Shown here is a 116-nucleotide RNA from Channa argus, a member of the family "U5 spliceosomal RNA". It is annotated as a spliceosomal small nuclear RNA. A search with the family's covariance model found it, with a score of 76 bits.

RNA sequence: UUACUCUGGUUUCUCUUCAUCACGCACAAGUCUUUCGCCUUUUACUAAACACUUCCGUGGAGAGAAUCCAAUGAGGUAAAUUCCAUUUUUGGCAGGCUUUGCCUUCUGGCAGAGCC
Numbered sequence: 001u002u003a004c005u006c007u008g009g010u011u012u013c014u015c016u017u018c019a020u021c022a023c024g025c026a027c028a029a030g031u032c033u034u035u036c037g038c039c040u041u042u043u044a045c046u047a048a049a050c051a052c053u054u055c056c057g058u059g060g061a062g063a064g065a066a067u068c069c070a071a072u073g074a075g076g077u078a079a080a081u082u083c084c085a086u087u088u089u090u091g092g093c094a095g096g097c098u099u100u101g102c103c104u105u106c107u108g109g110c111a112g113a114g115c116c
Stems, first nucleotide, its partner, number of pairs: 004075003009068001011066009028054004033049003096115006
Dot-bracket structure: ...(((..(.(((((((((........((((.(((...........))).))))...))))))))).)....)))....................((((((........)))))).